[Rfam]
RNA sequence: AAAAGAGGGACACCUCUAGGACUGUCCAACCUGAGAAUGGUGAAACAUGAAGGUCAAUCUCAGGUCCGUCAGCCCAUGAGAGGUCUUCUCCUG
Numbered sequence: 001a002a003a004a005g006a007g008g009g010a011c012a013c014c015u016c017u018a019g020g021a022c023u024g025u026c027c028a029a030c031c032u033g034a035g036a037a038u039g040g041u042g043a044a045a046c047a048u049g050a051a052g053g054u055c056a057a058u059c060u061c062a063g064g065u066c067c068g069u070c071a072g073c074c075c076a077u078g079a080g081a082g083g084u085c086u087u088c089u090c091c092u093g
Base pairs, nucleotide, nucleotide: 005090006089007088008086009085010084011083014080015079016078019075020074022072023071024070026068029065030064031063032062033061034060035059036058038056039055

This 93-nucleotide RNA sequence from Turnix velox belongs to the Rfam family "mir-1388 microRNA precursor family". On this family, see Soares et al., BMC Genomics 2009: "Parallel DNA pyrosequencing unveils new zebrafish microRNAs". A search with the family's covariance model found it, with a score of 92 bits. Rfam 15.1 lists 600 matches to the family in 570 species. The organism belongs to Turnix, within Eukaryota.